[Rfam]
RNA sequence: UAAUUCAUUCAGACAUUACCAGAGACAGUAGCAGUAACGAGCAAUCAAUACUUAAUUCGCUACCGAGGUGUAUAUAUUCUAUACGAUAACCUACUAACGUCUUUGGUAAUGCGAGCGCCAAAGACGUUUUGUUUUUCGCUCA
Numbered sequence: 001u002a003a004u005u006c007a008u009u010c011a012g013a014c015a016u017u018a019c020c021a022g023a024g025a026c027a028g029u030a031g032c033a034g035u036a037a038c039g040a041g042c043a044a045u046c047a048a049u050a051c052u053u054a055a056u057u058c059g060c061u062a063c064c065g066a067g068g069u070g071u072a073u074a075u076a077u078u079c080u081a082u083a084c085g086a087u088a089a090c091c092u093a094c095u096a097a098c099g100u101c102u103u104u105g106g107u108a109a110u111g112c113g114a115g116c117g118c119c120a121a122a123g124a125c126g127u128u129u130u131g132u133u134u135u136u137c138g139c140u141c142a
Stems, first nucleotide, its partner, number of pairs: 028063005034051003097127010
Shown here is a 142-nucleotide RNA from a Chloroflexota bacterium, a member of the family "Ribosomal protein L10 leader". The family's RNA type in Rfam is cis-regulatory leader. The base pairs follow the family's consensus structure, which was predicted with CMfinder. NCBI's taxonomy places the organism under Bacteria, Bacillati, Chloroflexota. About the family: This family is a putative r-protein leader autoregulatory structure found in B. subtilis and other low-GC Gram-positive bacteria. A reference for the family is Zengel and Lindahl (1994), "Diverse mechanisms for regulating ribosomal protein synthesis in Escherichia coli", Prog Nucleic Acid Res Mol Biol.